RNA sequence: GAUAGCCAUAAAUCACGGCUGGACUCAGGGUAGGUUCGGUCACCAGACGCACGGUUUGGGUGGCAGCAUCGUAUAAACCGCCCCAGUACAUCGCUUUGGCGACUAACAAUAAGGCUCCUGCGCCCAAAAAUAGCAGGUGAUGGCCCAAAAUGACGCCCAAUUGUUUCGGGUCGUCCCA
Numbered sequence: 001g002a003u004a005g006c007c008a009u010a011a012a013u014c015a016c017g018g019c020u021g022g023a024c025u026c027a028g029g030g031u032a033g034g035u036u037c038g039g040u041c042a043c044c045a046g047a048c049g050c051a052c053g054g055u056u057u058g059g060g061u062g063g064c065a066g067c068a069u070c071g072u073a074u075a076a077a078c079c080g081c082c083c084c085a086g087u088a089c090a091u092c093g094c095u096u097u098g099g100c101g102a103c104u105a106a107c108a109a110u111a112a113g114g115c116u117c118c119u120g121c122g123c124c125c126a127a128a129a130a131u132a133g134c135a136g137g138u139g140a141u142g143g144c145c146c147a148a149a150a151u152g153a154c155g156c157c158c159a160a161u162u163g164u165u166u167c168g169g170g171u172c173g174u175c176c177c178a
Base pairs, nucleotide, nucleotide: 136175137174138173139172140171141170144169145168147166148165
The record is a 178-nucleotide sequence from an uncultured Oscillatoriales cyanobacterium, which matches "Antisense RNA which regulates isiA expression" in Rfam.